[Rfam]
RNA sequence: CCGGUUGUUCCAUCAACCGUUCCCUACCCGGACAUGCGGGGCUGGUAACAGCUCGGUGUGAAGCUUCGGGGACAACGUAGCCGCCGGAUAUCCGGUACGCCGAGCCGUGAGGCAAGGCGGAAUCUGCCAGCACGAAGGCGGAGAGGAGC
Numbered sequence: 001c002c003g004g005u006u007g008u009u010c011c012a013u014c015a016a017c018c019g020u021u022c023c024c025u026a027c028c029c030g031g032a033c034a035u036g037c038g039g040g041g042c043u044g045g046u047a048a049c050a051g052c053u054c055g056g057u058g059u060g061a062a063g064c065u066u067c068g069g070g071g072a073c074a075a076c077g078u079a080g081c082c083g084c085c086g087g088a089u090a091u092c093c094g095g096u097a098c099g100c101c102g103a104g105c106c107g108u109g110a111g112g113c114a115a116g117g118c119g120g121a122a123u124c125u126g127c128c129a130g131c132a133c134g135a136a137g138g139c140g141g142a143g144a145g146g147a148g149c
Base pairs, nucleotide, nucleotide: 002019003018004017005016006015007014028069029068030067031066032065033060034059035058036057037056039054040053041052042051043050044049083096084095085094086093087092098119099118100117101116105112106111123142124141125140126139127138128137
RNA: Group II catalytic intron D1-D4-7
Organism: Paraburkholderia graminis